[Rfam]
Rfam assigns this 149-nucleotide RNA from Camelus ferus to the family "Small nucleolar RNA SNORA57". U99 belongs to the H/ACA class of snoRNAs which are thought to guide the sites of modification of uridines to pseudouridines, the target for this family is unknown. Taxonomically the source falls in Camelus (Eukaryota, Euteleostomi, Amniota, Mammalia). By type it is an H/ACA-box small nucleolar RNA. The family's consensus secondary structure was predicted with PFOLD. Rfam 15.1 lists 1,736 matches to the family in 530 species.

RNA sequence: CCUCCUUUUCUUGGCAGGGAUUGGGAGUGCGGUCCCAGGCCCUGUAAUAAAUGGAGGUAGAGGGAAAGAGCUCUGGUCCUCUCCGUGUUUUGUCUUAGGUACCAGUGGCUUCCAGUUUACCAGUUGUAUCCUCAAAUGCAGGGAGAAGG
Numbered sequence: 001c002c003u004c005c006u007u008u009u010c011u012u013g014g015c016a017g018g019g020a021u022u023g024g025g026a027g028u029g030c031g032g033u034c035c036c037a038g039g040c041c042c043u044g045u046a047a048u049a050a051a052u053g054g055a056g057g058u059a060g061a062g063g064g065a066a067a068g069a070g071c072u073c074u075g076g077u078c079c080u081c082u083c084c085g086u087g088u089u090u091u092g093u094c095u096u097a098g099g100u101a102c103c104a105g106u107g108g109c110u111u112c113c114a115g116u117u118u119a120c121c122a123g124u125u126g127u128a129u130c131c132u133c134a135a136a137u138g139c140a141g142g143g144a145g146a147a148g149g
Stems, first nucleotide, its partner, number of pairs: 001057005015044005022037004083141001085139004102123001105120004